[Rfam]
RNA: L17 ribosomal protein downstream element
RNA sequence: UGAGUGUUAUGAUGUUGGCGGGGGUUUCUGUGGGUGCAUGUGUUGAGUUGUGAUUGACUCUCUUUCGCAUCAGCCUUGCUUAUAGUCUAGCUCUGUCUGAUUAGAUUAAAUUUCUAAUC
Number, nucleotide and partner (000 for none) at each position: 001u000002g093003a092004g091005u090006g000007u000008u000009a000010u000011g087012a086013u085014g000015u000016u000017g080018g079019c078020g077021g076022g075023g000024g000025u000026u000027u000028c000029u000030g000031u000032g000033g000034g000035u000036g000037c000038a000039u000040g000041u000042g000043u000044u000045g000046a000047g000048u000049u000050g000051u000052g000053a000054u000055u000056g000057a000058c000059u000060c000061u000062c000063u000064u000065u000066c000067g000068c000069a000070u000071c000072a000073g000074c000075c022076u021077u020078g019079c018080u017081u000082a000083u000084a000085g013086u012087c011088u000089a000090g005091c004092u003093c002094u000095g000096u000097c000098u000099g119100a118101u117102u116103a115104g114105a113106u000107u000108a000109a000110a000111u000112u000113u105114c104115u103116a102117a101118u100119c099